[Rfam]
RNA: tRNA
RNA sequence: GGGCCCGUGGUCUAGACUGGUUAUGACGUCACCCUGACAAGGUGGAGGUCCGGGGUUCGAAUCCCCGCGGGCCCA
Dot-bracket structure: (((((((..(((............))).(((((.......))))).....(((((.......)))))))))))).